[Rfam]
RNA sequence: ACCGUGAUGCUAGUAUUAUCUCAUAUAUCCUCGAUAAUAUGGUUCGAGAGUCUCUACCCGACCACCGUAAAUGGUUGGACUAUGAGUGAAAAAAUACUGUGU
Numbered sequence: 001a002c003c004g005u006g007a008u009g010c011u012a013g014u015a016u017u018a019u020c021u022c023a024u025a026u027a028u029c030c031u032c033g034a035u036a037a038u039a040u041g042g043u044u045c046g047a048g049a050g051u052c053u054c055u056a057c058c059c060g061a062c063c064a065c066c067g068u069a070a071a072u073g074g075u076u077g078g079a080c081u082a083u084g085a086g087u088g089a090a091a092a093a094a095u096a097c098u099g100u101g102u
Base pairs, nucleotide, nucleotide: 020086021085022084023083024082025081030048031047032046033045034044058078059077060076061075062074063073064072

A member of the RNA family "Purine riboswitch aptamer" from Pectinatus cerevisiiphilus, 102 nucleotides long.
It scores 82 bits against the family's covariance model.
For this family Rfam cites "Riboswitches Control Fundamental Biochemical Pathways in Bacillus subtilis and Other Bacteria" (Mandal et al., Cell, 2003).